[Rfam]
RNA sequence: CACGUCAGAGCGCUUUGCUGACGUGGCAACAAAUCGCCCCCUCGUGGACGCGAUUUGUUGCGUCAGCAAAGCAUUCUGACGUGG
Numbered sequence: 001c002a003c004g005u006c007a008g009a010g011c012g013c014u015u016u017g018c019u020g021a022c023g024u025g026g027c028a029a030c031a032a033a034u035c036g037c038c039c040c041c042u043c044g045u046g047g048a049c050g051c052g053a054u055u056u057g058u059u060g061c062g063u064c065a066g067c068a069a070a071g072c073a074u075u076c077u078g079a080c081g082u083g084g
Stems, first nucleotide, its partner, number of pairs: 001083010012072010026061012040047002
Shown here is an 84-nucleotide RNA sequence from Gossypium hirsutum, a member of the family "MIR7486 microRNA precursor family".
The match comes from Rfam's covariance-model search (72 bits).
Rfam 15.1 lists 10,132 matches to the family in 36 species.